[Rfam]
RNA sequence: CAAUUCUAAGGAACAUUACCAAAGACAGCGUGCGACCGAAGGGAACUGAGGUGUAAAAAUGCCGCCGAGGGAUGAAACAAAACUGUUUUAAUCACGUCUUUGGUAGUGCGAGAAUCAAAGACGUUUUUAUUUGCUCGA
Numbered sequence: 001c002a003a004u005u006c007u008a009a010g011g012a013a014c015a016u017u018a019c020c021a022a023a024g025a026c027a028g029c030g031u032g033c034g035a036c037c038g039a040a041g042g043g044a045a046c047u048g049a050g051g052u053g054u055a056a057a058a059a060u061g062c063c064g065c066c067g068a069g070g071g072a073u074g075a076a077a078c079a080a081a082a083c084u085g086u087u088u089u090a091a092u093c094a095c096g097u098c099u100u101u102g103g104u105a106g107u108g109c110g111a112g113a114a115u116c117a118a119a120g121a122c123g124u125u126u127u128u129a130u131u132u133g134c135u136c137g138a
Stems, first nucleotide, its partner, number of pairs: 028065003032062003035052003095123010
RNA: Ribosomal protein L10 leader